[Rfam]
Nucleotides: 233
Base pairs, nucleotide, nucleotide: 002231003230005228006227007226008225024209025208027206028205029204031202032201033200034199035198036197037196038195039194040193041192042191043190045188046187047186
Number, partner (000 for none) and nucleotide at each position: 001000c002231c003230u004000u005228u006227a007226a008225g009000u010000a011000a012000u013000a014000a015000a016000a017000u018000g019000u020000c021000c022000g023000a024209u025208u026000u027206a028205g029204u030000c031202c032201c033200u034199u035198a036197a037196c038195u039194u040193u041192a042191u043190u044000u045188a046187a047186a048000g049000u050000a051000a052000u053000g054000g055000u056000u057000u058000g059000g060000u061000c062000c063000c064000u065000u066000c067000u068000a069000u070000u071000a072000a073000u074000u075000u076000a077000a078000u079000u080000u081000a082000a083000a084000a085000a086000a087000c088000g089000u090000u091000a092000a093000a094000u095000u096000u097000u098000g099000g100000u101000u102000u103000c104000u105000u106000a107000a108000c109000u110000u111000a112000u113000u114000u115000a116000a117000u118000u119000a120000g121000u122000a123000u124000u125000a126000g127000u128000u129000u130000g131000g132000u133000c134000c135000c136000u137000a138000a139000a140000c141000u142000u143000a144000a145000c146000a147000u148000u149000u150000u151000u152000u153000u154000a155000a156000u157000u158000a159000a160000a161000u162000u163000a164000a165000u166000a167000g168000a169000a170000a171000g172000g173000a174000c175000c176000a177000a178000a179000c180000c181000g182000a183000c184000a185000c186047u187046u188045u189000a190043a191042a192041u193040a194039a195038a196037g197036u198035u199034a200033a201032g202031g203000g204029a205028c206027u207000u208025a209024a210000a211000c212000g213000g214000a215000c216000u217000u218000u219000u220000u221000a222000u223000u224000a225008c226007u227006u228005a229000u230003g231002g232000g233000a

Shown here is a 233-nucleotide RNA sequence from Medicago truncatula, a member of the family "MIR2655 microRNA precursor family". Rfam links the family to the GO terms miRNA-mediated post-transcriptional gene silencing and RISC complex. A search with the family's covariance model found it, with a score of 189 bits. NCBI's taxonomy places the organism under Eukaryota, Tracheophyta, Spermatophyta, Gunneridae, Medicago.